[Rfam]
RNA sequence: AGCUUUGUGCAGUGACAAUAUGGUAGCCAAUCAGGUUUAUCCUAGGUGCAGUUAUUGCUAAUUGAAAACUUUUCCAGUAGCCUGCCAUGACAACUUGCAAGAUAGUCAGCAUUGGCAAUUUUUGACAGUCACUAUGGAGA
Numbered sequence: 001a002g003c004u005u006u007g008u009g010c011a012g013u014g015a016c017a018a019u020a021u022g023g024u025a026g027c028c029a030a031u032c033a034g035g036u037u038u039a040u041c042c043u044a045g046g047u048g049c050a051g052u053u054a055u056u057g058c059u060a061a062u063u064g065a066a067a068a069c070u071u072u073u074c075c076a077g078u079a080g081c082c083u084g085c086c087a088u089g090a091c092a093a094c095u096u097g098c099a100a101g102a103u104a105g106u107c108a109g110c111a112u113u114g115g116c117a118a119u120u121u122u123u124g125a126c127a128g129u130c131a132c133u134a135u136g137g138a139g140a
Stems, first nucleotide, its partner, number of pairs: 020052002023049002026047003034042002084116003087112003093106003129140002132137001